[Rfam]
RNA sequence: CUGCGGGGAUGAUCACCCUGAACUCUCUCUUUCUGAUGCGGCGGUGGAGACGCUUGUGAACACGAUCUGAGUGGC
Numbered sequence: 001c002u003g004c005g006g007g008g009a010u011g012a013u014c015a016c017c018c019u020g021a022a023c024u025c026u027c028u029c030u031u032u033c034u035g036a037u038g039c040g041g042c043g044g045u046g047g048a049g050a051c052g053c054u055u056g057u058g059a060a061c062a063c064g065a066u067c068u069g070a071g072u073g074g075c
Base pairs, nucleotide, nucleotide: 001074002073003072004071
A member of the RNA family "Small nucleolar RNA SNORD26" from Pomatostomus ruficeps, 75 nucleotides long. Its family is annotated with RNA processing and nucleolus in the Gene Ontology. It is annotated as a C/D-box small nucleolar RNA. The match comes from Rfam's covariance-model search (58 bits).